RNA sequence: AAAAAAACAAGGCCGAAGCUUCUCCGGAAGCACGGGGGAACCCAUUCUUGGGGUGAAGCCAUGAUGCUCAUGGCCGGGUGAUUGCUCUUUGACCCGAAUCCGUCAGCUAACCUCGCAGGCCGAAAAAAGGAGAGAU
Numbered sequence: 001a002a003a004a005a006a007a008c009a010a011g012g013c014c015g016a017a018g019c020u021u022c023u024c025c026g027g028a029a030g031c032a033c034g035g036g037g038g039a040a041c042c043c044a045u046u047c048u049u050g051g052g053g054u055g056a057a058g059c060c061a062u063g064a065u066g067c068u069c070a071u072g073g074c075c076g077g078g079u080g081a082u083u084g085c086u087c088u089u090u091g092a093c094c095c096g097a098a099u100c101c102g103u104c105a106g107c108u109a110a111c112c113u114c115g116c117a118g119g120c121c122g123a124a125a126a127a128a129g130g131a132g133a134g135a136u
Base pairs, nucleotide, nucleotide: 011121012120013119014118018031019030020029033115034114035113036112037111042050051101052100053099059073060072061071062070076095077094078093079092
Background:
Shown here is a 136-nucleotide RNA sequence from Paenibacillus sp. HGF7, a member of the family "c-di-AMP riboswitch aptamer (ydaO/yuaA leader)". NCBI's taxonomy places the organism under Bacteria, Bacillati, Bacillota, Paenibacillaceae, Paenibacillus. The base pairs follow the family's consensus structure.